[Rfam]
RNA: mir-8517 microRNA precursor family
Organism: Plutella xylostella
RNA sequence: GGACUGGAAGUUUUAGCUAUUGCACUGUUUUGUCACUACCUGCCAAAGAACAAAUAAUUGUUCUCUGUCAAGAGUGACAAAACAGUUCAAUAGCUAAAGCGUACAGUAAC
Numbered sequence: 001g002g003a004c005u006g007g008a009a010g011u012u013u014u015a016g017c018u019a020u021u022g023c024a025c026u027g028u029u030u031u032g033u034c035a036c037u038a039c040c041u042g043c044c045a046a047a048g049a050a051c052a053a054a055u056a057a058u059u060g061u062u063c064u065c066u067g068u069c070a071a072g073a074g075u076g077a078c079a080a081a082a083c084a085g086u087u088c089a090a091u092a093g094c095u096a097a098a099g100c101g102u103a104c105a106g107u108a109a110c
Stems, first nucleotide, its partner, number of pairs: 003107004011099012024086005029071001031070002034067002049062004